[Rfam]
RNA sequence: CGAUUGGAUAGUGCAGGAAACUGCAUGAAACUCGCCCGUAAUCCCGGCAUCACCGUGCAAGCGGUGUGGCGACUUCUUCAACCGCUGCCACAGCAGCCUUCAC
Dot-bracket structure: ..........((((((....)))))).....(((((..............((((((....)))))).)))))...........(((((....)))))......